[Rfam]
RNA: Bacterial RNase P class A
RNA sequence: AAAGACAGCUGGGCAAUCGCUGCCUCAUUUUUUGAGGGGGAGGAAAGUCCGGGCUCCAAUGGGCAGAGUGCCAGAUAACGUCUGGGCGGCGUGAGCCGACGACUAGUGCAACAGAGAGUAUACCGCCGAUGGCUGCUUGCAGUACAGGUAAGGGUGAAAGGGUGCGGUAAGAGCGCACCGCGCGGCUGGCAACAGUUCGUGGCACGGUAAACUCCACUCGGAGCAAGAUCAAAUAGGGUUCCAUAUGGCGCGGCCCGCGUUGGAACCGGGUAGAUUGCUUGAGCCUUACAGCAAUGUAAGGCCUAGACGAAUGAUUGCCGCUUUGUUUUCAAAGCACAGAACCCGGCUUACAAGCUGUCUUUUUCC
Numbered sequence: 001a002a003a004g005a006c007a008g009c010u011g012g013g014c015a016a017u018c019g020c021u022g023c024c025u026c027a028u029u030u031u032u033u034g035a036g037g038g039g040g041a042g043g044a045a046a047g048u049c050c051g052g053g054c055u056c057c058a059a060u061g062g063g064c065a066g067a068g069u070g071c072c073a074g075a076u077a078a079c080g081u082c083u084g085g086g087c088g089g090c091g092u093g094a095g096c097c098g099a100c101g102a103c104u105a106g107u108g109c110a111a112c113a114g115a116g117a118g119u120a121u122a123c124c125g126c127c128g129a130u131g132g133c134u135g136c137u138u139g140c141a142g143u144a145c146a147g148g149u150a151a152g153g154g155u156g157a158a159a160g161g162g163u164g165c166g167g168u169a170a171g172a173g174c175g176c177a178c179c180g181c182g183c184g185g186c187u188g189g190c191a192a193c194a195g196u197u198c199g200u201g202g203c204a205c206g207g208u209a210a211a212c213u214c215c216a217c218u219c220g221g222a223g224c225a226a227g228a229u230c231a232a233a234u235a236g237g238g239u240u241c242c243a244u245a246u247g248g249c250g251c252g253g254c255c256c257g258c259g260u261u262g263g264a265a266c267c268g269g270g271u272a273g274a275u276u277g278c279u280u281g282a283g284c285c286u287u288a289c290a291g292c293a294a295u296g297u298a299a300g301g302c303c304u305a306g307a308c309g310a311a312u313g314a315u316u317g318c319c320g321c322u323u324u325g326u327u328u329u330c331a332a333a334g335c336a337c338a339g340a341a342c343c344c345g346g347c348u349u350a351c352a353a354g355c356u357g358u359c360u361u362u363u364u365c366c
Base pairs, nucleotide, nucleotide: 001362002361003360004359005358006357007356008355009354010353011351012319013318014317015316016315017314018313020040021039023037024036025035026034027033045349046348047347049346050345051344052343053342054223055222056221057220061256062255063254064253066219067218068217069216070215071085072084073083074082075081086100087098088097089096090095101214102213106212107211108208109207123153124152125149126148127147130146131145132143133142134141135140161179162178163177164176165175166174180203181201182200183199184198185197186195187194188193227276228275229274230273237267238266239265240264241263242262247261248260249259250258251257283302284301285300286299287298288297289296290295